[Rfam]
RNA sequence: UUAAUAUUUUGAGUUUUUUGAUCUAAAAAGGCAAAGUGAACCUUUGUCUAGUUUUUUUAAAAGCGAAACCCUCAAAUUGCGGGAAACUCUUAAAGACAAAUUUACCAAGUUAAUGUAGUAAUAUAAUUAAUGGCACAGGUAAUGACUCGUGGUAUGGUAAAAACAAUUUGUAUAUAUAGAUAAUCCGCAGCCAAGCUCCAGCGAACUCAGGAGUGCAGUUCAUCGACUAGACGUGGGUUGGUUGAUUAUAAAUUUAUCGUGCCUCCGGCAAAAGAUAAGUUUAUGAUUGGCUUAAGAUAUAGUCAGUCUUAAUAUGAAAAUAUUAA
Dot-bracket structure: (.((...)).).......................................................(((((.(....((((((....(((.......................................................................................)))...))))))((...((((............))))...))...[.[[[[[...).))))).(((((((((.................................)))))))))........]]]]]].....(((((....)))))..